[Rfam]
RNA: Fluoride riboswitch aptamer (crcB RNA motif)
RNA sequence: GCCGUCGAUGGGGAUGGGGCUCCCCCGAUAACCGCCUGAGAUGGCUGAUGGCUCCUGCUGAGAC
Numbered sequence: 001g002c003c004g005u006c007g008a009u010g011g012g013g014a015u016g017g018g019g020c021u022c023c024c025c026c027g028a029u030a031a032c033c034g035c036c037u038g039a040g041a042u043g044g045c046u047g048a049u050g051g052c053u054c055c056u057g058c059u060g061a062g063a064c
Base pairs, nucleotide, nucleotide: 010026011025012024013023016055017054018053019052020051021050034045035044036043
Dot-bracket structure: .........[[[[..((((((.]]]].......(((......)))....)))))).........